RNA: RT-13 RNA
RNA sequence: GCGUGCGUCCGAGGGAUCGCCGGCGUUCGGGCCGGGGCUCAGGGUCGAGAGCCAAUCCCUCGGACUUUGC
Numbered sequence: 001g002c003g004u005g006c007g008u009c010c011g012a013g014g015g016a017u018c019g020c021c022g023g024c025g026u027u028c029g030g031g032c033c034g035g036g037g038c039u040c041a042g043g044g045u046c047g048a049g050a051g052c053c054a055a056u057c058c059c060u061c062g063g064a065c066u067u068u069g070c
Base pairs, nucleotide, nucleotide: 007065008064009063010062011061012060013059014058015057016056017055020035021034022033023032024031037052038051039050040049